[Rfam]
RNA sequence: AACAAUUUGUCCUGCGUCCCACGGCGUUUUAAAAAAGUCCCUAUUUUUGGAAAGAUUCUUCAAAAAUAGGGACUUUUUUAAAAUGCCGUGGGACGCGAGACAAAUUGUUAA
Dot-bracket structure: (((((((((((.((((((((((((((((((((((((((((((((((.................)))))))))))))))))))))))))))))))))).)))))))))))..
Numbered sequence: 001a002a003c004a005a006u007u008u009g010u011c012c013u014g015c016g017u018c019c020c021a022c023g024g025c026g027u028u029u030u031a032a033a034a035a036a037g038u039c040c041c042u043a044u045u046u047u048u049g050g051a052a053a054g055a056u057u058c059u060u061c062a063a064a065a066a067u068a069g070g071g072a073c074u075u076u077u078u079u080a081a082a083a084u085g086c087c088g089u090g091g092g093a094c095g096c097g098a099g100a101c102a103a104a105u106u107g108u109u110a111a
Stems, first nucleotide, its partner, number of pairs: 001109011013097034